[Rfam]
RNA: RAGATH-18 RNA
RNA sequence: ACUGUGAAGUGCUAUACAAACUGUAGUAGAUUGAUACUUGGUAUCAUCAAGGCAGAGCACGUUGAAGCAGUAA
Number, nucleotide and partner (000 for none) at each position: 001a071002c070003u069004g068005u067006g000007a000008a000009g060010u059011g058012c057013u056014a000015u000016a000017c000018a000019a000020a000021c055022u054023g053024u000025a000026g000027u000028a000029g048030a047031u046032u000033g000034a044035u043036a000037c000038u000039u000040g000041g000042u000043a035044u034045c000046a031047u030048c029049a000050a000051g000052g000053c023054a022055g021056a013057g012058c011059a010060c009061g000062u000063u000064g000065a000066a000067g005068c004069a003070g002071u001072a000073a000